[Rfam]
This 244-nucleotide sequence from Drosophila ananassae belongs to the Rfam family "R2 RNA element".
NCBI's taxonomy places the organism under Eukaryota, Arthropoda, Neoptera, Diptera, ananassae species complex.
A reference for the family is Ruschak et al. (2004), "Secondary structure models of the 3' untranslated regions of diverse R2 RNAs", RNA.
Rfam describes the family as follows. This family represents the 3' UTR region of the R2 retrotransposable element.
It scores 102 bits against the family's covariance model.
Gene Ontology term of the family: regulation of reverse transcription.
It is annotated as a cis-regulatory element.
RNA sequence: ACCUUGCCAAUGCACGGGUUCCGAAUUAAGCUUGCUGCCGAAGCAUACCAUCAAAAUCGGCAUGAAAUUCGCUAUAUAAAGGAGGUGGUUUAAGUACGUAGGCGUCUCGGGACUUGUCUCGGGAUGAAUCGUGCAUGCGUAUCAUUGGGAUCGAUAAUAAAUAACAACAACAUCUGCUAAACAUAUCGAUAUAUAAAAUCCCCCGAUACGUAUCUUUGAAGAUUUCCUACAAACCUUCAAAAAA
Numbered sequence: 001a002c003c004u005u006g007c008c009a010a011u012g013c014a015c016g017g018g019u020u021c022c023g024a025a026u027u028a029a030g031c032u033u034g035c036u037g038c039c040g041a042a043g044c045a046u047a048c049c050a051u052c053a054a055a056a057u058c059g060g061c062a063u064g065a066a067a068u069u070c071g072c073u074a075u076a077u078a079a080a081g082g083a084g085g086u087g088g089u090u091u092a093a094g095u096a097c098g099u100a101g102g103c104g105u106c107u108c109g110g111g112a113c114u115u116g117u118c119u120c121g122g123g124a125u126g127a128a129u130c131g132u133g134c135a136u137g138c139g140u141a142u143c144a145u146u147g148g149g150a151u152c153g154a155u156a157a158u159a160a161a162u163a164a165c166a167a168c169a170a171c172a173u174c175u176g177c178u179a180a181a182c183a184u185a186u187c188g189a190u191a192u193a194u195a196a197a198a199u200c201c202c203c204c205g206a207u208a209c210g211u212a213u214c215u216u217u218g219a220a221g222a223u224u225u226c227c228u229a230c231a232a233a234c235c236u237u238c239a240a241a242a243a244a
Base pairs, nucleotide, nucleotide: 036062037061038060039059040058041057068243069242081238082237083236084235085234086231088230094134095133096132097131098130103126104125105124106123107122108121109120110119111118112117136212137211138210139209140208141207142206143205